[Rfam]
RNA sequence: CUCUUCCUAUUAUCAUCAGAUUUGUAUCCAGUGGUCCGCUCAAUUCUUGAAUUGUAGCGUUGAUUUCUGCGAUAGUUCAAUGGCGAUGAGUAGUAUCUUACACUACCAUGUAUAUGGUGCUACCCUAUUGACAAAUCUCAGAGUAAUCAUACUUCUUGAGCCUGAGCUCGCUUCGGCUGAGCUCGGUUACGGAUACUAUAAGGCGUCAUAUUCCACCUCUUUUCACUGACGGCCGUCGGCUUAUGAAGUUAAAGAAAAACCAUGACAUGCCUACAUUA
Numbered sequence: 001c002u003c004u005u006c007c008u009a010u011u012a013u014c015a016u017c018a019g020a021u022u023u024g025u026a027u028c029c030a031g032u033g034g035u036c037c038g039c040u041c042a043a044u045u046c047u048u049g050a051a052u053u054g055u056a057g058c059g060u061u062g063a064u065u066u067c068u069g070c071g072a073u074a075g076u077u078c079a080a081u082g083g084c085g086a087u088g089a090g091u092a093g094u095a096u097c098u099u100a101c102a103c104u105a106c107c108a109u110g111u112a113u114a115u116g117g118u119g120c121u122a123c124c125c126u127a128u129u130g131a132c133a134a135a136u137c138u139c140a141g142a143g144u145a146a147u148c149a150u151a152c153u154u155c156u157u158g159a160g161c162c163u164g165a166g167c168u169c170g171c172u173u174c175g176g177c178u179g180a181g182c183u184c185g186g187u188u189a190c191g192g193a194u195a196c197u198a199u200a201a202g203g204c205g206u207c208a209u210a211u212u213c214c215a216c217c218u219c220u221u222u223u224c225a226c227u228g229a230c231g232g233c234c235g236u237c238g239g240c241u242u243a244u245g246a247a248g249u250u251a252a253a254g255a256a257a258a259a260c261c262a263u264g265a266c267a268u269g270c271c272u273a274c275a276u277u278a
Stems, first nucleotide, its partner, number of pairs: 018138008026073003029069003033065004037059004041054005084130005091122003095118003149197001159188004164184006170177002202271003205266005218255005225249003231241004
The family of this 278-nucleotide RNA from Blumeria hordei is "A. fumigatus sRNA Afu_309". The base pairs follow the family's consensus structure, which was predicted with WAR. On this family, see Jochl et al., Nucleic Acids Res 2008: "Small ncRNA transcriptome analysis from Aspergillus fumigatus suggests a novel mechanism for regulation of protein synthesis". Rfam 15.1 lists 663 matches to the family in 646 species.